Source information
A member of the RNA family "Cyano-1 RNA" from Calothrix sp. NIES-4101, 76 nucleotides long. The base pairs follow the family's consensus structure, which is taken from published work.
[Rfam]
RNA sequence: UUGUGUGUGAGGAGUAAGUUGAAAAUACAAAGAGCGCUUGGAGUGGAAACACGGUCACACGUCCAAGCGCUUUUUG
Numbered sequence: 001u002u003g004u005g006u007g008u009g010a011g012g013a014g015u016a017a018g019u020u021g022a023a024a025a026u027a028c029a030a031a032g033a034g035c036g037c038u039u040g041g042a043g044u045g046g047a048a049a050c051a052c053g054g055u056c057a058c059a060c061g062u063c064c065a066a067g068c069g070c071u072u073u074u075u076g
Stems, first nucleotide, its partner, number of pairs: 031073006040064003043060003